[Rfam]
RNA sequence: GCGCUGGUUUAGCUCAGUGGUUACUUCGAACAAAUUCUAGCCUGUCUAGAUACUGCUCUCUAUCCCUCCCCGGGAUCGAACCACGGGUGCUGCCCAGUGCUUUU
Number, nucleotide and partner (000 for none) at each position: 001g000002c099003g098004c097005u096006g095007g094008u000009u000010u000011a000012g088013c087014u086015c085016a000017g084018u083019g082020g081021u000022u000023a000024c000025u080026u079027c078028g077029a076030a000031c000032a000033a000034a000035u000036u000037c000038u000039a000040g000041c000042c000043u000044g000045u000046c000047u000048a000049g000050a000051u000052a000053c000054u000055g000056c000057u000058c000059u000060c000061u000062a000063u000064c000065c000066c000067u000068c000069c000070c000071c000072g000073g000074g000075a000076u029077c028078g027079a026080a025081c020082c019083a018084c017085g015086g014087g013088u012089g000090c000091u000092g000093c000094c007095c006096a005097g004098u003099g002100c000101u000102u000103u000104u000
Rfam assigns this 104-nucleotide RNA sequence from Collichthys lucidus to the family "Vault RNA". It is annotated as a non-coding RNA gene. Taxonomically the source falls in Collichthys (Eukaryota, Teleostomi, Neoteleostei, Eurypterygia). The family has 73 seed sequences and 2,873 matches in Rfam 15.1. A search with the family's covariance model found it, with a score of 67 bits. The family's consensus secondary structure is taken from published work.